[Rfam]
RNA sequence: ACCUUCCUUGUCAUGGGGUGGCACGGGAGACUCAAUGAGCGAAUAGCGAGAGUCCCCCUGCUAACACCAUAUCAACACAUAUGCAUCACCUGGACACCAUGUUCAGGCUCUGAUGCAAUUUUUGGAAAC
Numbered sequence: 001a002c003c004u005u006c007c008u009u010g011u012c013a014u015g016g017g018g019u020g021g022c023a024c025g026g027g028a029g030a031c032u033c034a035a036u037g038a039g040c041g042a043a044u045a046g047c048g049a050g051a052g053u054c055c056c057c058c059u060g061c062u063a064a065c066a067c068c069a070u071a072u073c074a075a076c077a078c079a080u081a082u083g084c085a086u087c088a089c090c091u092g093g094a095c096a097c098c099a100u101g102u103u104c105a106g107g108c109u110c111u112g113a114u115g116c117a118a119u120u121u122u123u124g125g126a127a128a129c
Stems, first nucleotide, its partner, number of pairs: 006018004021061003026056002030053004039047002083116006089107006
The record is a 129-nucleotide RNA from Etheostoma spectabile, which matches "U4atac minor spliceosomal RNA" in Rfam. Rfam classes the family as a spliceosomal small nuclear RNA. A search with the family's covariance model found it, with a score of 96 bits. Its family is annotated with spliceosomal tri-snRNP complex assembly, mRNA 5'-splice site recognition and U4atac snRNP in the Gene Ontology. Rfam 15.1 lists 1,648 matches to the family in 818 species. Clan: U4 clan. Rfam describes the family as follows. U4atac is an essential component of the minor U12-type spliceosome complex which is required for removal of the rarer class of eukaryotic introns (AT-AC, U12-type). The source organism's lineage runs through Eukaryota, Gnathostomata, Euteleostomi, Eupercaria and Oligocephalus. A reference for the family is Lorkovic et al. (2005), "Evolutionary conservation of minor U12-type spliceosome between plants and humans", RNA. The base pairs follow the family's consensus structure, which is taken from published work.